Rfam assigns this 124-nucleotide sequence from Lupinus albus to the family "Small nucleolar RNA snoR77". On this family, see Marker et al., Curr Biol 2002: "Experimental RNomics: identification of 140 candidates for small non-messenger RNAs in the plant Arabidopsis thaliana". Rfam links the family to the GO terms RNA processing and nucleolus. The family's RNA type in Rfam is H/ACA-box small nucleolar RNA. Rfam 15.1 lists 649 matches to the family in 221 species. Lineage of the source: Eukaryota > rosids > genistoids sensu lato > core genistoids > Lupinus. The match comes from Rfam's covariance-model search (101 bits).
RNA sequence: AGGCAACUUCCUCGCUACAAUGACAUGGUGUGAGAGGUGUUAUACUGCUCCUAAAUUAAAUUCUUUUGCUCUUCAGACUUGCUGAGAUUUUCUUUGAAGCUGGUCUAGUAAGCUCUAGUACAUU
Numbered sequence: 001a002g003g004c005a006a007c008u009u010c011c012u013c014g015c016u017a018c019a020a021u022g023a024c025a026u027g028g029u030g031u032g033a034g035a036g037g038u039g040u041u042a043u044a045c046u047g048c049u050c051c052u053a054a055a056u057u058a059a060a061u062u063c064u065u066u067u068g069c070u071c072u073u074c075a076g077a078c079u080u081g082c083u084g085a086g087a088u089u090u091u092c093u094u095u096g097a098a099g100c101u102g103g104u105c106u107a108g109u110a111a112g113c114u115c116u117a118g119u120a121c122a123u124u
Stems, first nucleotide, its partner, number of pairs: 002041004007037002009034001011032001013030005063118002068113003075106005081100003086092002